Background
A member of the RNA family "TPP riboswitch aptamer (THI element)" from Actibacterium naphthalenivorans, 100 nucleotides long.
[Rfam]
RNA sequence: GGCGAUACCUCGGGGUGCCCUGUCCGGGCUGAGAUGCAUCCGCGAACCCGUUGAACCUGAACCGGUUAAGACCGGCGGAGGGAAGGUAACUGGACAAACU
Number, nucleotide and partner (000 for none) at each position: 001g000002g000003c000004g000005a000006u088007a087008c086009c085010u084011c050012g049013g048014g047015g000016u044017g029018c028019c027020c026021u000022g000023u000024c000025c000026g020027g019028g018029c017030u000031g000032a000033g000034a000035u000036g043037c042038a000039u000040c000041c000042g037043c036044g016045a000046a000047c014048c013049c012050g011051u000052u000053g000054a000055a000056c081057c080058u079059g000060a000061a000062c075063c074064g073065g072066u000067u000068a000069a000070g000071a000072c065073c064074g063075g062076c000077g000078g000079a058080g057081g056082g000083a000084a010085g009086g008087u007088a006089a000090c000091u000092g000093g000094a000095c000096a000097a000098a000099c000100u000
Rfam describes the family as follows. Vitamin B(1) in its active form thiamin pyrophosphate (TPP) is an essential coenzyme that is synthesised by coupling of pyrimidine and thiazole moieties in bacteria.